[Rfam]
Rfam assigns this 297-nucleotide sequence from Aquibacillus halophilus to the family "T-box leader".
On this family, see Grundy et al., RNA 2000: "tRNA determinants for transcription antitermination of the Bacillus subtilis tyrS gene".
The family has 48 seed sequences and 19,395 matches in Rfam 15.1.
The organism belongs to Aquibacillus, within Bacteria.
From the family's description: Uncharged tRNA acts as the effector for transcription antitermination of genes in the T-box leader family.
The family's RNA type in Rfam is cis-regulatory leader.

RNA sequence: AUUAAAGCGAUGAUAAGGAUAGUACAUUUUCCAAUUGGUUUUAAGAGAGUCUGUGGGUGGUGAGAACAGAUACCAAGGAAUAAUGGAAUUGGAUCUUUGGAGCUGUGUUUUAUCAAACUAUCUUCAUUAGUAUUUUUCCUGAUGAUAGAUACCUACUUAUGGCCUUUCAAAAAAACGAUUAGCCUAAGUUUGUAUGAAAACACCGUAUUCAGGCGUUAACUGAUACCAGUUUGGUACAAAGUGAUCUCUAGCUAUUAGAGAUAAUAAGGGUGGCACCGCGGUUCAUUCGUCCCUUUU
Numbered sequence: 001a002u003u004a005a006a007g008c009g010a011u012g013a014u015a016a017g018g019a020u021a022g023u024a025c026a027u028u029u030u031c032c033a034a035u036u037g038g039u040u041u042u043a044a045g046a047g048a049g050u051c052u053g054u055g056g057g058u059g060g061u062g063a064g065a066a067c068a069g070a071u072a073c074c075a076a077g078g079a080a081u082a083a084u085g086g087a088a089u090u091g092g093a094u095c096u097u098u099g100g101a102g103c104u105g106u107g108u109u110u111u112a113u114c115a116a117a118c119u120a121u122c123u124u125c126a127u128u129a130g131u132a133u134u135u136u137u138c139c140u141g142a143u144g145a146u147a148g149a150u151a152c153c154u155a156c157u158u159a160u161g162g163c164c165u166u167u168c169a170a171a172a173a174a175a176c177g178a179u180u181a182g183c184c185u186a187a188g189u190u191u192g193u194a195u196g197a198a199a200a201c202a203c204c205g206u207a208u209u210c211a212g213g214c215g216u217u218a219a220c221u222g223a224u225a226c227c228a229g230u231u232u233g234g235u236a237c238a239a240a241g242u243g244a245u246c247u248c249u250a251g252c253u254a255u256u257a258g259a260g261a262u263a264a265u266a267a268g269g270g271u272g273g274c275a276c277c278g279c280g281g282u283u284c285a286u287u288c289g290u291c292c293c294u295u296u297u
Stems, first nucleotide, its partner, number of pairs: 007103002015097004025085004030080001038074001040072001049071006106202006204215003244262007267294004278290004